[Rfam]
A member of the RNA family "mir-9456 microRNA precursor family" from Nematostella vectensis, 63 nucleotides long. NCBI's taxonomy places the organism under Eukaryota, Eumetazoa, Cnidaria, Hexacorallia, Nematostella.
RNA sequence: CGUAUAGCCGCUGACUCGCGAAAUCCUCUCGUAGCGAGGAUUUCGCGAGUCAGCGGCUACACG
Number, nucleotide and partner (000 for none) at each position: 001c063002g062003u061004a000005u000006a058007g057008c056009c055010g054011c053012u052013g051014a050015c049016u048017c047018g046019c045020g044021a043022a042023a041024u040025c039026c038027u037028c036029u000030c000031g000032u000033a000034g000035c000036g028037a027038g026039g025040a024041u023042u022043u021044c020045g019046c018047g017048a016049g015050u014051c013052a012053g011054c010055g009056g008057c007058u006059a000060c000061a003062c002063g001